RNA sequence: CCUCACAUGUUCCGGGUUUCGCGACGACUGAACCGUAUGAACCACAGAACGGGUUCGUUGUCGACGAAACCUGCACGAUGUGGGG
Numbered sequence: 001c002c003u004c005a006c007a008u009g010u011u012c013c014g015g016g017u018u019u020c021g022c023g024a025c026g027a028c029u030g031a032a033c034c035g036u037a038u039g040a041a042c043c044a045c046a047g048a049a050c051g052g053g054u055u056c057g058u059u060g061u062c063g064a065c066g067a068a069a070c071c072u073g074c075a076c077g078a079u080g081u082g083g084g085g
Stems, first nucleotide, its partner, number of pairs: 001085006013073009030056005
RNA: mir-981 microRNA precursor family